The record is a 94-nucleotide RNA from Tombusvirus cynarae, which matches "Tombusvirus internal replication element (IRE)" in Rfam. For this family Rfam cites "The p92 Polymerase Coding Region Contains an Internal RNA Element Required at an Early Step in Tombusvirus Genome Replication" (Monkewich et al., J Virol, 2005). Rfam describes the family as follows. This family represents the Tombusvirus internal replication element (IRE) which is located within the region coding for p92 polymerase. The base pairs follow the family's consensus structure, which was predicted with PFOLD. NCBI's taxonomy places the organism under Viruses, Riboviria, Tolucaviricetes, Procedovirinae, Tombusvirus cynarae.
RNA sequence: GGUUUGUGAGAAGGUUGGAGUUGCCCACCGGUUGGGGUAUGACGGUUUCCUGUCAUACUACAGCGGCGCGAAGCUCCGUACUUACACACGAGCU
Numbered sequence: 001g002g003u004u005u006g007u008g009a010g011a012a013g014g015u016u017g018g019a020g021u022u023g024c025c026c027a028c029c030g031g032u033u034g035g036g037g038u039a040u041g042a043c044g045g046u047u048u049c050c051u052g053u054c055a056u057a058c059u060a061c062a063g064c065g066g067c068g069c070g071a072a073g074c075u076c077c078g079u080a081c082u083u084a085c086a087c088a089c090g091a092g093c094u
Stems, first nucleotide, its partner, number of pairs: 001094008017077005026068001028066003037058009